[Rfam]
RNA sequence: AGCACUAUUUUUAAACCUGUUGGUAGAAUUUCUUGCUGCCAUGGGUUACGCUGUAGUGCAAAAGAAUUUCCUGGCCCUUUGGAGCAUUGCUGACCUUGCUCUGUUCAGCUGAUGCUACUCUGAAGCAAAGGAACAGAA
Numbered sequence: 001a002g003c004a005c006u007a008u009u010u011u012u013a014a015a016c017c018u019g020u021u022g023g024u025a026g027a028a029u030u031u032c033u034u035g036c037u038g039c040c041a042u043g044g045g046u047u048a049c050g051c052u053g054u055a056g057u058g059c060a061a062a063a064g065a066a067u068u069u070c071c072u073g074g075c076c077c078u079u080u081g082g083a084g085c086a087u088u089g090c091u092g093a094c095c096u097u098g099c100u101c102u103g104u105u106c107a108g109c110u111g112a113u114g115c116u117a118c119u120c121u122g123a124a125g126c127a128a129a130g131g132a133a134c135a136g137a138a
Stems, first nucleotide, its partner, number of pairs: 002059007014047004021041006068133005074126002078122001081119001084115003087111001089109002092106002
Small nucleolar RNA SNORA46: a 138-nucleotide sequence from Dromaius novaehollandiae. Rfam classes the family as an H/ACA-box small nucleolar RNA. ACA46 is a member of the H/ACA class of snoRNA that guide the sites of modification of uridines to pseudouridines. A search with the family's covariance model found it, with a score of 96 bits.